Shown here is an 80-nucleotide RNA from a Moraxellaceae bacterium, a member of the family "SAH (S-adenosyl-L-homocysteine) riboswitch aptamer".
RNA sequence: CGUCUCGAGGGGUGCUGCGACAGUAAACCAAUAUACUGCCAGGCUCGAGCACGUCAUUUAUUGAACGGCAUCCGCGAAUU
Numbered sequence: 001c002g003u004c005u006c007g008a009g010g011g012g013u014g015c016u017g018c019g020a021c022a023g024u025a026a027a028c029c030a031a032u033a034u035a036c037u038g039c040c041a042g043g044c045u046c047g048a049g050c051a052c053g054u055c056a057u058u059u060a061u062u063g064a065a066c067g068g069c070a071u072c073c074g075c076g077a078a079u080u
Base pairs, nucleotide, nucleotide: 004049005048006047007046008045021038022037023036024035025034